[Rfam]
RNA sequence: GCCGUUGGUGGCGAUGGGGCUCGCCCUCAACUGCCGGACACCUCCGGCUGACGGUCCCUGCGAACGA
Numbered sequence: 001g002c003c004g005u006u007g008g009u010g011g012c013g014a015u016g017g018g019g020c021u022c023g024c025c026c027u028c029a030a031c032u033g034c035c036g037g038a039c040a041c042c043u044c045c046g047g048c049u050g051a052c053g054g055u056c057c058c059u060g061c062g063a064a065c066g067a
Stems, first nucleotide, its partner, number of pairs: 010025004016058006033048006